[Rfam]
RNA sequence: CCAAAGGCUUGUGUCAAGCCUGUUCCCACUUCUCCCAUGCGUCAUCAGCAAUGAUGAGGUGUGAGAGCGGAGAUGAAAGUCUAAGGAAGUAGCCCAGUUACAGGGCGAAACCGGGCAAGGGAAAGUCCUGCAUGGUUAGCCUAGCGAACCAUUGUUUGA
Numbered sequence: 001c002c003a004a005a006g007g008c009u010u011g012u013g014u015c016a017a018g019c020c021u022g023u024u025c026c027c028a029c030u031u032c033u034c035c036c037a038u039g040c041g042u043c044a045u046c047a048g049c050a051a052u053g054a055u056g057a058g059g060u061g062u063g064a065g066a067g068c069g070g071a072g073a074u075g076a077a078a079g080u081c082u083a084a085g086g087a088a089g090u091a092g093c094c095c096a097g098u099u100a101c102a103g104g105g106c107g108a109a110a111c112c113g114g115g116c117a118a119g120g121g122a123a124a125g126u127c128c129u130g131c132a133u134g135g136u137u138a139g140c141c142u143a144g145c146g147a148a149c150c151a152u153u154g155u156u157u158g159a
Stems, first nucleotide, its partner, number of pairs: 002022002031073005036063005042057006089101005103128004111119001132152006
Dot-bracket structure: .((.................))........((((((((((.((((((....)))))).))))).....)))))...............(((((...))))).((((....(.......).....))))...((((((.........)))))).......
A member of the RNA family "Group II catalytic intron D1-D4-7" from Leptolyngbya sp. FACHB-321, 159 nucleotides long. A reference for the family is Lehmann and Schmidt (2003), "Group II introns: structure and catalytic versatility of large natural ribozymes", Crit Rev Biochem Mol Biol. The match comes from Rfam's covariance-model search (36 bits). The source organism's lineage runs through Bacteria, Bacillati, Cyanophyceae, Leptolyngbyales and Leptolyngbya. Rfam links the family to the GO term Group II intron splicing. Rfam's curators write: Group II introns are found in rRNA, tRNA and mRNA of organelles in fungi, plants and protists, and also in mRNA in bacteria. The family has 244 seed sequences and 1,296 matches in Rfam 15.1. The base pairs follow the family's consensus structure.